Source information: Fluoride riboswitch aptamer (crcB RNA motif): a 99-nucleotide RNA sequence from Nocardia nova. The source organism's lineage runs through Bacteria, Bacillati, Mycobacteriales, Nocardia and Nocardia nova.
[Rfam]
RNA sequence: GAAGAUGUAGGCGAUGGAGCUCGCCUCAACCGCGCCAGCCGAGGUCCUGUGACGAUGCGGGCCUUUACAGCGGUUCGCGCUGAUAGCUCCUACCGAUCC
Numbered sequence: 001g002a003a004g005a006u007g008u009a010g011g012c013g014a015u016g017g018a019g020c021u022c023g024c025c026u027c028a029a030c031c032g033c034g035c036c037a038g039c040c041g042a043g044g045u046c047c048u049g050u051g052a053c054g055a056u057g058c059g060g061g062c063c064u065u066u067a068c069a070g071c072g073g074u075u076c077g078c079g080c081u082g083a084u085a086g087c088u089c090c091u092a093c094c095g096a097u098c099c
Stems, first nucleotide, its partner, number of pairs: 010025004016090006032080004
It scores 43 bits against the family's covariance model. A reference for the family is Zhao et al. (2017), "An excited state underlies gene regulation of a transcriptional riboswitch", Nat Chem Biol.